[Rfam]
RNA sequence: UAAAAAGUUGGGAAUGAAGUUCUCCCAUGGCAAAAGCCUGAACCGCCUGUAAGCUGAUGACUUCUGUGACUUA
Number, nucleotide and partner (000 for none) at each position: 001u000002a000003a000004a000005a000006a000007g000008u000009u000010g026011g025012g024013a023014a000015u000016g064017a063018a062019g061020u060021u059022c000023u013024c012025c011026c010027a000028u000029g000030g000031c000032a000033a000034a000035a000036g000037c000038c000039u000040g000041a000042a000043c000044c000045g054046c053047c000048u000049g000050u000051a000052a000053g046054c045055u000056g000057a000058u000059g021060a020061c019062u018063u017064c016065u000066g000067u000068g000069a000070c000071u000072u000073a000
Description:
Fluoride riboswitch aptamer (crcB RNA motif): a 73-nucleotide RNA sequence from Sinanaerobacter chloroacetimidivorans. Lineage of the source: Bacteria > Bacillati > Peptostreptococcales > Anaerovoracaceae > Sinanaerobacter. The base pairs follow the family's consensus structure, which is taken from published work.